[Rfam]
Shown here is a 158-nucleotide RNA sequence from Lactuca sativa, a member of the family "small nucleolar RNA snoR134". The base pairs follow the family's consensus structure, which was predicted with RNAalifold. It is annotated as an H/ACA-box small nucleolar RNA. For this family Rfam cites "Mining small RNA sequencing data: a new approach to identify small nucleolar RNAs in Arabidopsis" (Chen and Wu, Nucleic Acids Res, 2009). Taxonomically the source falls in Lactuca (Eukaryota, Streptophytina, Pentapetalae, campanulids).
RNA sequence: UAGCACCUAGGCAUCUCUCAUCUCUGAAAAAACGAACCGGAUGAAGAAGAAAGCUCUAAUGCCGGUGCUAAAUCAGAUAUAUAGCUGUCAAGUGUUGUAGUUCAUUUUUUUCUACCUUUCUCGAUGGCCAUUUCUAAGUCAAAUCGACGAAUACAUUU
Numbered sequence: 001u002a003g004c005a006c007c008u009a010g011g012c013a014u015c016u017c018u019c020a021u022c023u024c025u026g027a028a029a030a031a032a033c034g035a036a037c038c039g040g041a042u043g044a045a046g047a048a049g050a051a052a053g054c055u056c057u058a059a060u061g062c063c064g065g066u067g068c069u070a071a072a073u074c075a076g077a078u079a080u081a082u083a084g085c086u087g088u089c090a091a092g093u094g095u096u097g098u099a100g101u102u103c104a105u106u107u108u109u110u111u112c113u114a115c116c117u118u119u120c121u122c123g124a125u126g127g128c129c130a131u132u133u134c135u136a137a138g139u140c141a142a143a144u145c146g147a148c149g150a151a152u153a154c155a156u157u158u
Base pairs, nucleotide, nucleotide: 003068004067005066006065007064011062012061019053021050022049023047024046025045086149087148088147089146093141094140096138098136099135100134104125105124106123